[Rfam]
RNA sequence: AUAGCCGGUGAUGCCUUAUUUUCCAUGCUAAUGCUGAUGCUAAGUGACGAAAACGAUUCUCACGACGGUCAACUGAGGCUAUC
Numbered sequence: 001a002u003a004g005c006c007g008g009u010g011a012u013g014c015c016u017u018a019u020u021u022u023c024c025a026u027g028c029u030a031a032u033g034c035u036g037a038u039g040c041u042a043a044g045u046g047a048c049g050a051a052a053a054c055g056a057u058u059c060u061c062a063c064g065a066c067g068g069u070c071a072a073c074u075g076a077g078g079c080u081a082u083c
Stems, first nucleotide, its partner, number of pairs: 001082005